A member of the RNA family "Bacterial RNase P class A" from Actinomadura harenae, 382 nucleotides long. By type it is a ribozyme. The base pairs follow the family's consensus structure, which is taken from published work. A search with the family's covariance model found it, with a score of 288 bits.
RNA sequence: CGAGCCGGCCGGACGGCCGCGUCGGGGCAUCGCCCCGUCGAGGAAAGUCCGGGCUCCACAGGGCAGGGUGGUCGGUAACACCGACCCGGGGCGACCCGCGGGACAGUGCCACAGAAAGCAGACCGCCACCGCGAGGUGGUAAGGGUGAAACGGUGAGGUAAGAGCUCACCGGCGCCCACGGUGACGUGGGCGGCCAGGUAAACCCCACCCGGAGCAAGGUCAAGAAGGGAAGCGACGCUUCCCGCGCAGGCGUUCGAGGGCGGCCCGCCCGAUGCCUGCGGGUAGACCGCUGGAGGCCGCCGGCAACGGCGGUCCGAGAUGGAUGGCCGUCGCCGCCCCGCAAGGGACGGCACAGAACCCGGCUUACAGGCCGACUCGUCCG
Numbered sequence: 001c002g003a004g005c006c007g008g009c010c011g012g013a014c015g016g017c018c019g020c021g022u023c024g025g026g027g028c029a030u031c032g033c034c035c036c037g038u039c040g041a042g043g044a045a046a047g048u049c050c051g052g053g054c055u056c057c058a059c060a061g062g063g064c065a066g067g068g069u070g071g072u073c074g075g076u077a078a079c080a081c082c083g084a085c086c087c088g089g090g091g092c093g094a095c096c097c098g099c100g101g102g103a104c105a106g107u108g109c110c111a112c113a114g115a116a117a118g119c120a121g122a123c124c125g126c127c128a129c130c131g132c133g134a135g136g137u138g139g140u141a142a143g144g145g146u147g148a149a150a151c152g153g154u155g156a157g158g159u160a161a162g163a164g165c166u167c168a169c170c171g172g173c174g175c176c177c178a179c180g181g182u183g184a185c186g187u188g189g190g191c192g193g194c195c196a197g198g199u200a201a202a203c204c205c206c207a208c209c210c211g212g213a214g215c216a217a218g219g220u221c222a223a224g225a226a227g228g229g230a231a232g233c234g235a236c237g238c239u240u241c242c243c244g245c246g247c248a249g250g251c252g253u254u255c256g257a258g259g260g261c262g263g264c265c266c267g268c269c270c271g272a273u274g275c276c277u278g279c280g281g282g283u284a285g286a287c288c289g290c291u292g293g294a295g296g297c298c299g300c301c302g303g304c305a306a307c308g309g310c311g312g313u314c315c316g317a318g319a320u321g322g323a324u325g326g327c328c329g330u331c332g333c334c335g336c337c338c339c340g341c342a343a344g345g346g347a348c349g350g351c352a353c354a355g356a357a358c359c360c361g362g363c364u365u366a367c368a369g370g371c372c373g374a375c376u377c378g379u380c381c382g
Base pairs, nucleotide, nucleotide: 001378002377003376004375006373007372008371009370010369011367012331013330014329015328016327017326018325020040021039023037024036025035026034027033028032045365046364047363049362050361051360052359053358054214055213056212057211061266062265063264064263066210067209068208069207070206071085072084073083074082075081086100087098088097089096090095101205102204106203107202108199109198110197123144124143125140126139127138128137129136130135152170153169154168155167156166157165172194173192174191175190176189177188178187179186180185218288219287220286221285228279230277232275233274258270259269260268261267295314296313297312298311299310300309301308302307